TPP riboswitch aptamer (THI element): a 103-nucleotide sequence from Pullulanibacillus pueri. Rfam links the family to the GO term thiamine pyrophosphate binding. The match comes from Rfam's covariance-model search (84 bits). Rfam describes the family as follows. Vitamin B(1) in its active form thiamin pyrophosphate (TPP) is an essential coenzyme that is synthesised by coupling of pyrimidine and thiazole moieties in bacteria. For this family Rfam cites "Comparative genomics of thiamin biosynthesis in procaryotes. New genes and regulatory mechanisms" (Rodionov et al., J Biol Chem, 2002).
[Rfam]
RNA sequence: AAAGUCCACUAGGGGAGCCGUUUUAGCGGCUGAGACAAGGAAUCUUGGACCCUUUGAACCUGAUCUGGUUUAUACCAGCGUAGGAAAGUGGAGACGGCGAACA
Number, nucleotide and partner (000 for none) at each position: 001a000002a000003a000004g000005u000006c091007c090008a089009c088010u087011a053012g052013g051014g050015g000016a000017g030018c029019c028020g027021u026022u000023u000024u000025a000026g021027c020028g019029g018030c017031u000032g000033a000034g000035a000036c000037a046038a045039g044040g000041a000042a000043u000044c039045u038046u037047g000048g000049a000050c014051c013052c012053u011054u000055u000056g000057a000058a000059c084060c083061u082062g081063a000064u000065c078066u077067g076068g075069u000070u000071u000072a000073u000074a000075c068076c067077a066078g065079c000080g000081u062082a061083g060084g059085a000086a000087a010088g009089u008090g007091g006092a000093g000094a000095c000096g000097g000098c000099g000100a000101a000102c000103a000